[Rfam]
RNA sequence: GCGAGCCGAUGGACGGCUCUCGGGGUUCUCCUGAGGAAACACCGCUCAUCGGAUGGGACUGCAAGAUCGAAAGGAUCUAGGCUGAGAGGCCUGACCCUGGAACAGAAACGAUACCCGCCAGUUCACCGCCAUGAUGCGGAAACGCUGAGGACGGGCUGGUCAGGGAUGGAACGGCCAAUCUGCAGGAUGCAAGGGCAAAAUAACUGCCGAUGAACUCCAUCGGAGGCAGGUGGUAGCCCGCUAAGCUAAAUGCCGUUUAGAACAGAAAGCGGGUUACGGUCGGCACGC
Numbered sequence: 001g002c003g004a005g006c007c008g009a010u011g012g013a014c015g016g017c018u019c020u021c022g023g024g025g026u027u028c029u030c031c032u033g034a035g036g037a038a039a040c041a042c043c044g045c046u047c048a049u050c051g052g053a054u055g056g057g058a059c060u061g062c063a064a065g066a067u068c069g070a071a072a073g074g075a076u077c078u079a080g081g082c083u084g085a086g087a088g089g090c091c092u093g094a095c096c097c098u099g100g101a102a103c104a105g106a107a108a109c110g111a112u113a114c115c116c117g118c119c120a121g122u123u124c125a126c127c128g129c130c131a132u133g134a135u136g137c138g139g140a141a142a143c144g145c146u147g148a149g150g151a152c153g154g155g156c157u158g159g160u161c162a163g164g165g166a167u168g169g170a171a172c173g174g175c176c177a178a179u180c181u182g183c184a185g186g187a188u189g190c191a192a193g194g195g196c197a198a199a200a201u202a203a204c205u206g207c208c209g210a211u212g213a214a215c216u217c218c219a220u221c222g223g224a225g226g227c228a229g230g231u232g233g234u235a236g237c238c239c240g241c242u243a244a245g246c247u248a249a250a251u252g253c254c255g256u257u258u259a260g261a262a263c264a265g266a267a268a269g270c271g272g273g274u275u276a277c278g279g280u281c282g283g284c285a286c287g288c
Stems, first nucleotide, its partner, number of pairs: 001288003005284005010278002012257006021033005038275003042272005047189004052221005059185005064078005079092005093180002098177003114165003117160008136145002193239004204229005
Archaeal RNase P: a 288-nucleotide RNA from candidate division MSBL1 archaeon SCGC-AAA259B11. Its Rfam clan is "RNaseP clan". The family's consensus secondary structure is taken from published work. Rfam links the family to the GO terms multimeric ribonuclease P complex, tRNA processing and ribonuclease P activity. The organism belongs to candidate division MSBL1, within Archaea. From the family's description: Ribonuclease P (RNase P) is a ubiquitous endoribonuclease, found in archaea, bacteria and eukarya as well as chloroplasts and mitochondria. Its best characterised activity is the generation of mature 5'-ends of tRNAs by cleaving the 5'-leader elements of precursor-tRNAs. Cellular RNase Ps are ribonucleoproteins.